[Rfam]
A member of the RNA family "Y RNA" from Cavia porcellus, 95 nucleotides long. The sequence is in the family's curated seed alignment. Rfam classes the family as a non-coding RNA gene.

RNA sequence: GGCUGGUCCGAUGGCAGUGGGUUAUCAGAACUUAUUAACAUUAGUGUCACUAAAGUUGGUAUACCACCCCCCACUGCUAAAUUUGACUGGCUUUA
Numbered sequence: 001g002g003c004u005g006g007u008c009c010g011a012u013g014g015c016a017g018u019g020g021g022u023u024a025u026c027a028g029a030a031c032u033u034a035u036u037a038a039c040a041u042u043a044g045u046g047u048c049a050c051u052a053a054a055g056u057u058g059g060u061a062u063a064c065c066a067c068c069c070c071c072c073a074c075u076g077c078u079a080a081a082u083u084u085g086a087c088u089g090g091c092u093u094u095a
Stems, first nucleotide, its partner, number of pairs: 002091007010084002016075006033061003037057002